Rfam assigns this 153-nucleotide sequence from Asparagus officinalis to the family "Small nucleolar RNA snoR2/U65". A reference for the family is Shaw et al. (1998), "Localization and processing from a polycistronic precursor of novel snoRNAs in maize", J Cell Sci. The match comes from Rfam's covariance-model search (107 bits). Rfam links the family to the GO terms nucleolus and RNA processing. Rfam classes the family as an H/ACA-box small nucleolar RNA. The family's consensus secondary structure was predicted with WAR. Its Rfam clan is "SNORA65 clan".

RNA sequence: AGCCUGAUGCCACGUCAACAGUAGCUAUGUGCUUUAACUGGAGAUGCUAUGAUUGGGCUGAUAUGAAGCUGGGUUUCUGGCGUUUCGCAUCUUGAUAGGAAACUAUGGAUUGAAUAUUAGUGAUCCAUGGUGCCGUUUUAUGUGAUUACAUGC
Dot-bracket structure: .((((((((...((((...(((.((.....))....)))...))))...).)))))))..........................(((((........((...(((.(((((..........))))).)))..))......)))))........
Numbered sequence: 001a002g003c004c005u006g007a008u009g010c011c012a013c014g015u016c017a018a019c020a021g022u023a024g025c026u027a028u029g030u031g032c033u034u035u036a037a038c039u040g041g042a043g044a045u046g047c048u049a050u051g052a053u054u055g056g057g058c059u060g061a062u063a064u065g066a067a068g069c070u071g072g073g074u075u076u077c078u079g080g081c082g083u084u085u086c087g088c089a090u091c092u093u094g095a096u097a098g099g100a101a102a103c104u105a106u107g108g109a110u111u112g113a114a115u116a117u118u119a120g121u122g123a124u125c126c127a128u129g130g131u132g133c134c135g136u137u138u139u140a141u142g143u144g145a146u147u148a149c150a151u152g153c
Stems, first nucleotide, its partner, number of pairs: 002058007009050001013046004020039003024032002085145005098134002103130003107126005